The family of this 197-nucleotide RNA sequence from Oryza rufipogon is "MIR812 microRNA precursor family". Its family is annotated with miRNA-mediated post-transcriptional gene silencing and RISC complex in the Gene Ontology. The family's consensus secondary structure was predicted with RNAalifold. The organism belongs to Oryza, within Eukaryota. It scores 84 bits against the family's covariance model.
[Rfam]
RNA sequence: UUUGAGUUUUUUUUGCUUGCAACGUUUGACCACUCGUCUUAUUCAAAAUUUUUUAAAAUUAUUAUUUAUUUUAUUUGUGACUUACUUUAUUAUCCACAAUACUUUAAGUACAACUUUUCAUUUUUUAUAUUUGCAAAAAAAAAAAUGAAUAAGACGAGUGGUCAAACGUUGCAUACAAAAACUCAAAAUCCCUUAUA
Numbered sequence: 001u002u003u004g005a006g007u008u009u010u011u012u013u014u015g016c017u018u019g020c021a022a023c024g025u026u027u028g029a030c031c032a033c034u035c036g037u038c039u040u041a042u043u044c045a046a047a048a049u050u051u052u053u054u055a056a057a058a059u060u061a062u063u064a065u066u067u068a069u070u071u072u073a074u075u076u077g078u079g080a081c082u083u084a085c086u087u088u089a090u091u092a093u094c095c096a097c098a099a100u101a102c103u104u105u106a107a108g109u110a111c112a113a114c115u116u117u118u119c120a121u122u123u124u125u126u127a128u129a130u131u132u133g134c135a136a137a138a139a140a141a142a143a144a145a146u147g148a149a150u151a152a153g154a155c156g157a158g159u160g161g162u163c164a165a166a167c168g169u170u171g172c173a174u175a176c177a178a179a180a181a182c183u184c185a186a187a188a189u190c191c192c193u194u195a196u197a
Stems, first nucleotide, its partner, number of pairs: 018173006025166018